[Rfam]
RNA: TPP riboswitch aptamer (THI element)
Organism: Roseateles toxinivorans
RNA sequence: GCCACUCGCUAGGGGUGUUGAACCGAAAGGUUCGACUGAGAAAGUCCCUUUGAACCUGAUUGAGGUAAUCCUCGCGCAGGGAAGCACGCAUCAAGCCCG
Numbered sequence: 001g002c003c004a005c006u007c008g009c010u011a012g013g014g015g016u017g018u019u020g021a022a023c024c025g026a027a028a029g030g031u032u033c034g035a036c037u038g039a040g041a042a043a044g045u046c047c048c049u050u051u052g053a054a055c056c057u058g059a060u061u062g063a064g065g066u067a068a069u070c071c072u073c074g075c076g077c078a079g080g081g082a083a084g085c086a087c088g089c090a091u092c093a094a095g096c097c098c099g
Stems, first nucleotide, its partner, number of pairs: 008085003011049004016043001017036007055080004061074004
Dot-bracket structure: .......(((((((.((((((((......)))))))......)..)))).....((((..((((......))))..))))..)))..............